[Rfam]
RNA sequence: GAUUAUUCGUAGCGAAAUUCUUGUGGUGGGCUGGCGCAUGGGCAGGAUGGUGUAACCAUCCGGCGAUAGCCUCCCAUGCGCGAUCCAAGGCUCCUGACGGGGCCUUUUUUUAUGCCCGAAA
Numbered sequence: 001g002a003u004u005a006u007u008c009g010u011a012g013c014g015a016a017a018u019u020c021u022u023g024u025g026g027u028g029g030g031c032u033g034g035c036g037c038a039u040g041g042g043c044a045g046g047a048u049g050g051u052g053u054a055a056c057c058a059u060c061c062g063g064c065g066a067u068a069g070c071c072u073c074c075c076a077u078g079c080g081c082g083a084u085c086c087a088a089g090g091c092u093c094c095u096g097a098c099g100g101g102g103c104c105u106u107u108u109u110u111u112a113u114g115c116c117c118g119a120a121a
Stems, first nucleotide, its partner, number of pairs: 007028001029117002032114001034081009045061006063070002087106008
Shown here is a 121-nucleotide RNA from Xaviernesmea oryzae, a member of the family "Rhizobiales sRNA Atu_C8". Taxonomically the source falls in Xaviernesmea (Bacteria, Pseudomonadati, Pseudomonadota, Rhizobiaceae). The family's consensus secondary structure was predicted with CMfinder.